A member of the RNA family "Small nucleolar RNA R21" from Hevea brasiliensis, 78 nucleotides long. The family's consensus secondary structure was predicted with PFOLD. The match comes from Rfam's covariance-model search (60 bits). Rfam links the family to the GO terms RNA processing and nucleolus.
[Rfam]
RNA sequence: CAUUCCUUUGGAAAAUGAAAUUUAUAUGUAGAAGUAGUGGACUGAUUUCCAUUGAUGACGAUCAAAUUCUGAGGGAUG
Numbered sequence: 001c002a003u004u005c006c007u008u009u010g011g012a013a014a015a016u017g018a019a020a021u022u023u024a025u026a027u028g029u030a031g032a033a034g035u036a037g038u039g040g041a042c043u044g045a046u047u048u049c050c051a052u053u054g055a056u057g058a059c060g061a062u063c064a065a066a067u068u069c070u071g072a073g074g075g076a077u078g
Stems, first nucleotide, its partner, number of pairs: 001078006